[Rfam]
RNA: U5 spliceosomal RNA
Organism: Hymenochirus boettgeri
Nucleotides: 123
Stems, first nucleotide, its partner, number of pairs: 003086004011073009032061003035057001037055003110122003
Number, partner (000 for none) and nucleotide at each position: 001000c002000a003086a004085c005084u006083c007000g008000g009000g010000u011073u012072u013071c014070u015069c016068u017067u018066c019065a020000g021000a022000a023000u024000u025000c026000g027000c028000a029000u030000a031000a032061a033060a034059a035057u036000c037055u038054u039053u040000c041000a042000c043000g044000c045000c046000u047000u048000u049000u050000a051000c052000u053039a054038a055037a056000u057035a058000u059034u060033u061032u062000c063000c064000g065019u066018g067017g068016a069015g070014g071013g072012g073011a074000c075000a076000g077000c078000c079000c080000c081000a082000u083006g084005a085004g086003u087000u088000a089000c090000a091000u092000g093000c094000a095000a096000u097000u098000u099000u100000g101000u102000u103000g104000a105000g106000g107000c108000u109000u110122g111121c112120g113000u114000u115000u116000u117000c118000g119000c120112c121111g122110c123000u